DUF805b RNA: a 35-nucleotide sequence from Dokdonia pacifica. The family is grouped with related families in Rfam's "DUF805 clan". Taxonomically the source falls in Dokdonia (Bacteria, Bacteroidota, Flavobacteriia, Flavobacteriales). The base pairs follow the family's consensus structure, which is taken from published work.
RNA sequence: CAGGAGGAUUCUGAAAAACCUUAAAAGAGUAGGAA
Numbered sequence: 001c002a003g004g005a006g007g008a009u010u011c012u013g014a015a016a017a018a019c020c021u022u023a024a025a026a027g028a029g030u031a032g033g034a035a
Stems, first nucleotide, its partner, number of pairs: 002021003010034003
Dot-bracket structure: .(((.....[[[......)))..........]]].
Rfam classes the family as a cis-regulatory element.